[Rfam]
RNA sequence: UCCCUCCAGAUCCCUUUCCCAUCAGAUCCGAAUACCGAUCUUGUGGUCGAAAAUGGAGGAAAAACAAAAUUCAGACUGGUCCUGGCCUCUUCACUGGUGCCGUCCUGCUCUGAGAGGGGCCAGUUGGAAGACAGU
Numbered sequence: 001u002c003c004c005u006c007c008a009g010a011u012c013c014c015u016u017u018c019c020c021a022u023c024a025g026a027u028c029c030g031a032a033u034a035c036c037g038a039u040c041u042u043g044u045g046g047u048c049g050a051a052a053a054u055g056g057a058g059g060a061a062a063a064a065c066a067a068a069a070u071u072c073a074g075a076c077u078g079g080u081c082c083u084g085g086c087c088u089c090u091u092c093a094c095u096g097g098u099g100c101c102g103u104c105c106u107g108c109u110c111u112g113a114g115a116g117g118g119g120c121c122a123g124u125u126g127g128a129a130g131a132c133a134g135u
Stems, first nucleotide, its partner, number of pairs: 003059005019046003023043001025040004076123007091113003
RNA: Small nucleolar RNA SNORA61
Organism: Apaloderma vittatum